[Rfam]
RNA sequence: CAAAAACUUCAGGGUCGGGUGAAAUUCCCAAUCGGCGGUAAACCCCGCAAGCCGUAACUGGCAGGAACCGUGUGCAAUUCCGGUGGCGACAGUAUAGUCUGGAUGAAAGAAGUAUAGU
Numbered sequence: 001c002a003a004a005a006a007c008u009u010c011a012g013g014g015u016c017g018g019g020u021g022a023a024a025u026u027c028c029c030a031a032u033c034g035g036c037g038g039u040a041a042a043c044c045c046c047g048c049a050a051g052c053c054g055u056a057a058c059u060g061g062c063a064g065g066a067a068c069c070g071u072g073u074g075c076a077a078u079u080c081c082g083g084u085g086g087c088g089a090c091a092g093u094a095u096a097g098u099c100u101g102g103a104u105g106a107a108a109g110a111a112g113u114a115u116a117g118u
Stems, first nucleotide, its partner, number of pairs: 004115001006113005017029003031098002033088002035048004043086002053061001067084004072080001090101003
Overview
Shown here is a 118-nucleotide sequence from Erysipelotrichaceae bacterium 5_2_54FAA, a member of the family "FMN riboswitch aptamer (RFN element)". Pairs were carried over by alignment from the consensus structure, which is taken from published work.